[Rfam]
This 112-nucleotide RNA sequence from Actinophytocola xanthii belongs to the Rfam family "TPP riboswitch aptamer (THI element)".
RNA sequence: GGCGAUCACCACGGGAGUCCGGUGUGCGCCGGGCUGAGAGGAGGGCUCGCAGCCCUCGACCGUCGAACCUGAUCCGGGUCAUGCCGGCGCAGGGAGGAGGAGACGUGUUACU
Numbered sequence: 001g002g003c004g005a006u007c008a009c010c011a012c013g014g015g016a017g018u019c020c021g022g023u024g025u026g027c028g029c030c031g032g033g034c035u036g037a038g039a040g041g042a043g044g045g046c047u048c049g050c051a052g053c054c055c056u057c058g059a060c061c062g063u064c065g066a067a068c069c070u071g072a073u074c075c076g077g078g079u080c081a082u083g084c085c086g087g088c089g090c091a092g093g094g095a096g097g098a099g100g101a102g103a104c105g106u107g108u109u110a111c112u
Base pairs, nucleotide, nucleotide: 006100007099009097010096011063012062013061014060017034018033019032020031021030041057042056043055044054045053046052047051068093069092070091071090074087075086076085077084
Dot-bracket structure: .....((.((((((..(((((........)))))......(((((((...)))))))..))))....((((..((((......))))..))))..)).))............

Vitamin B(1) in its active form thiamin pyrophosphate (TPP) is an essential coenzyme that is synthesised by coupling of pyrimidine and thiazole moieties in bacteria. It scores 64 bits against the family's covariance model.